A member of the RNA family "Bacterial large subunit ribosomal RNA" from Denitrovibrio acetiphilus, 586 nucleotides of a longer RNA. Pairs were carried over by alignment from the consensus structure, which is taken from published work.
RNA sequence: CCCGCAGCAGGACGGAAAGACCCCGUGGACCUUUACUAUAGUUUGGCAAUGAUACUUGGUAAAUCAUGUGUAGGAUAGGUGGGAGACGUUGAAAUGUGGUCGCUAGAUUGCAUGGAGUCGUCCUUGAAAUACCACCCUUGGUUUGCUGAUUAUCUAACCUAGCCGGUGUGUAACCGGAGGGACAUUGUCUGACGGGUAGUUUGACUGGGGCGGUCGCCUCCGAAAGAGUAACAGAGGCGCGCGAAGGUAUUCUCAGAUUGGUCGGAAACCAAUUGACGAGUGUAAAGGCAUAAGAAUGCUUGACUGUGAGACCUACAAGUCGAACAGGUAGGAAACUAGGCCUUAGUGAUCCGGUGGUCCCGAGUGGAAGGGCCAUCGCUCAACGGAUAAAAGGUACCCCGGGGAUAACAGGCUGAUCUCCCCCAAGAGUUCACAUCGACGGGGAGGUUUGGCACCUCGAUGUCGGCUCAUCACAUCCUGGGGCUGUAGCAGGUCCCAAGGGUACGGCUGUUCGCCGUUUAAAGUGGUACGCGAGCUGGGUUCAGAACGUCGUGAGACAGUUCGGUCCUUAUCCGCUGCGGGCGCA
Numbered sequence: 001c002c003c004g005c006a007g008c009a010g011g012a013c014g015g016a017a018a019g020a021c022c023c024c025g026u027g028g029a030c031c032u033u034u035a036c037u038a039u040a041g042u043u044u045g046g047c048a049a050u051g052a053u054a055c056u057u058g059g060u061a062a063a064u065c066a067u068g069u070g071u072a073g074g075a076u077a078g079g080u081g082g083g084a085g086a087c088g089u090u091g092a093a094a095u096g097u098g099g100u101c102g103c104u105a106g107a108u109u110g111c112a113u114g115g116a117g118u119c120g121u122c123c124u125u126g127a128a129a130u131a132c133c134a135c136c137c138u139u140g141g142u143u144u145g146c147u148g149a150u151u152a153u154c155u156a157a158c159c160u161a162g163c164c165g166g167u168g169u170g171u172a173a174c175c176g177g178a179g180g181g182a183c184a185u186u187g188u189c190u191g192a193c194g195g196g197u198a199g200u201u202u203g204a205c206u207g208g209g210g211c212g213g214u215c216g217c218c219u220c221c222g223a224a225a226g227a228g229u230a231a232c233a234g235a236g237g238c239g240c241g242c243g244a245a246g247g248u249a250u251u252c253u254c255a256g257a258u259u260g261g262u263c264g265g266a267a268a269c270c271a272a273u274u275g276a277c278g279a280g281u282g283u284a285a286a287g288g289c290a291u292a293a294g295a296a297u298g299c300u301u302g303a304c305u306g307u308g309a310g311a312c313c314u315a316c317a318a319g320u321c322g323a324a325c326a327g328g329u330a331g332g333a334a335a336c337u338a339g340g341c342c343u344u345a346g347u348g349a350u351c352c353g354g355u356g357g358u359c360c361c362g363a364g365u366g367g368a369a370g371g372g373c374c375a376u377c378g379c380u381c382a383a384c385g386g387a388u389a390a391a392a393g394g395u396a397c398c399c400c401g402g403g404g405a406u407a408a409c410a411g412g413c414u415g416a417u418c419u420c421c422c423c424c425a426a427g428a429g430u431u432c433a434c435a436u437c438g439a440c441g442g443g444g445a446g447g448u449u450u451g452g453c454a455c456c457u458c459g460a461u462g463u464c465g466g467c468u469c470a471u472c473a474c475a476u477c478c479u480g481g482g483g484c485u486g487u488a489g490c491a492g493g494u495c496c497c498a499a500g501g502g503u504a505c506g507g508c509u510g511u512u513c514g515c516c517g518u519u520u521a522a523a524g525u526g527g528u529a530c531g532c533g534a535g536c537u538g539g540g541u542u543c544a545g546a547a548c549g550u551c552g553u554g555a556g557a558c559a560g561u562u563c564g565g566u567c568c569u570u571a572u573c574c575g576c577u578g579c580g581g582g583c584g585c586a
Stems, first nucleotide, its partner, number of pairs: 001582008010574003014569002022403004027399002029395005035200004042192002045189004051154004056149011068137001078136005085119003094113008158180003163177005203215004216238005239384001241341002247299006253279002256274006280289002304327004310321003329338003352378007360371002412453003416450001417447007427437002464539001465537004469531001470528005477502002480497006504518005545563004549558003

The sequence is in the family's curated seed alignment.